[Rfam]
RNA: SmY spliceosomal RNA
Organism: Caenorhabditis nigoni
RNA sequence: CAGUAUCUAGCAUUUUGUCGAGGCCUUCUAUAAGACCUUCAGAAAAAUUUUUGGAAACCCUGCCUCAUUGUUUGGGGCAGGGUA
Numbered sequence: 001c002a003g004u005a006u007c008u009a010g011c012a013u014u015u016u017g018u019c020g021a022g023g024c025c026u027u028c029u030a031u032a033a034g035a036c037c038u039u040c041a042g043a044a045a046a047a048u049u050u051u052u053g054g055a056a057a058c059c060c061u062g063c064c065u066c067a068u069u070g071u072u073u074g075g076g077g078c079a080g081g082g083u084a
Base pairs, nucleotide, nucleotide: 021038022037023036025034026033027032057083058082059081060080061079062078063077064076065075066074067073